[Rfam]
RNA: c-di-AMP riboswitch aptamer (ydaO/yuaA leader)
Organism: Xylanimonas oleitrophica
RNA sequence: GCCGCGUGCACGUCAACACCCGGCAGGGACGGGGGAACCACUUUCGGGCGCCGCUGUUCGGCGUCCUCGGGGUGAAGCCAUGCGAGCAACGCUCGCUGGCCGGGUCAGUCUCCGACCCGAAUCCGACAGCUAACCUCGCAGGCGCCAGGAGAUACCGA
Numbered sequence: 001g002c003c004g005c006g007u008g009c010a011c012g013u014c015a016a017c018a019c020c021c022g023g024c025a026g027g028g029a030c031g032g033g034g035g036a037a038c039c040a041c042u043u044u045c046g047g048g049c050g051c052c053g054c055u056g057u058u059c060g061g062c063g064u065c066c067u068c069g070g071g072g073u074g075a076a077g078c079c080a081u082g083c084g085a086g087c088a089a090c091g092c093u094c095g096c097u098g099g100c101c102g103g104g105u106c107a108g109u110c111u112c113c114g115a116c117c118c119g120a121a122u123c124c125g126a127c128a129g130c131u132a133a134c135c136u137c138g139c140a141g142g143c144g145c146c147a148g149g150a151g152a153u154a155c156c157g158a
Stems, first nucleotide, its partner, number of pairs: 001143003007028001009026001030138005039069001070124003078099003102118004